[Rfam]
RNA: tRNA
Organism: Solidesulfovibrio carbinoliphilus
RNA sequence: GCCAGCGUAGCUCAGUUGGUAGAGCAGCUGAUUCGUAAUCAGCAGGUCGAGUGUUCGAGUCACUUCGCUGGCU
Numbered sequence: 001g002c003c004a005g006c007g008u009a010g011c012u013c014a015g016u017u018g019g020u021a022g023a024g025c026a027g028c029u030g031a032u033u034c035g036u037a038a039u040c041a042g043c044a045g046g047u048c049g050a051g052u053g054u055u056c057g058a059g060u061c062a063c064u065u066c067g068c069u070g071g072c073u
Stems, first nucleotide, its partner, number of pairs: 001072007010025004027043005049065005
Dot-bracket structure: (((((((..((((........)))).(((((.......))))).....(((((.......)))))))))))).